[Rfam]
RNA: MIR8024 microRNA precursor family
Organism: Solanum commersonii
RNA sequence: UUGGAGAUUUUAAAGAUUUUAACUUGCAUACUUGGAGAAUUUGAAAACUUCAACUUGUAUACUUGGAGGUUUUGAAGACUUCAACU
Numbered sequence: 001u002u003g004g005a006g007a008u009u010u011u012a013a014a015g016a017u018u019u020u021a022a023c024u025u026g027c028a029u030a031c032u033u034g035g036a037g038a039a040u041u042u043g044a045a046a047a048c049u050u051c052a053a054c055u056u057g058u059a060u061a062c063u064u065g066g067a068g069g070u071u072u073u074g075a076a077g078a079c080u081u082c083a084a085c086u
Stems, first nucleotide, its partner, number of pairs: 001084006009076006017068005025059004032053006